Description: Shown here is a 76-nucleotide RNA sequence from Alligator sinensis, a member of the family "Mammalian CPEB3 ribozyme". Pairs were carried over by alignment from the consensus structure, which is taken from published work. Rfam describes the family as follows. The mammalian CPEB3 ribozyme is a self cleaving RNA located in the second intron of the CPEB3 gene which belongs to a family of genes regulating messenger RNA polyadenylation. Rfam links the family to the GO term RNA nuclease activity.
RNA sequence: AUUGAAAGUUCAAGGCCGUAGCUGAAGUGCUCACAUCGUGGCCAGUCAGAUUCCAACGAAAUCUGUGAAUUCUGCU
Number, nucleotide and partner (000 for none) at each position: 001a000002u000003u000004g000005a000006a000007a000008g000009u000010u000011c000012a000013a000014g043015g042016c041017c040018g000019u000020a076021g075022c074023u000024g072025a071026a070027g039028u038029g037030c000031u000032c000033a000034c000035a000036u000037c029038g028039u027040g017041g016042c015043c014044a000045g000046u000047c065048a064049g063050a062051u061052u060053c000054c000055a000056a000057c000058g000059a000060a052061a051062u050063c049064u048065g047066u000067g000068a000069a000070u026071u025072c024073u000074g022075c021076u020